[Rfam]
RNA sequence: UGCGACACCCAUCAACGGAGUCGUUCCCCACCGAGGAGCUACUUUACAAUAUUCUAAAUUC
Dot-bracket structure: ................(((((.(((((.......))))).)))))................
RNA: Plastid-psbN 5UTR RNA
Organism: Phtheirospermum japonicum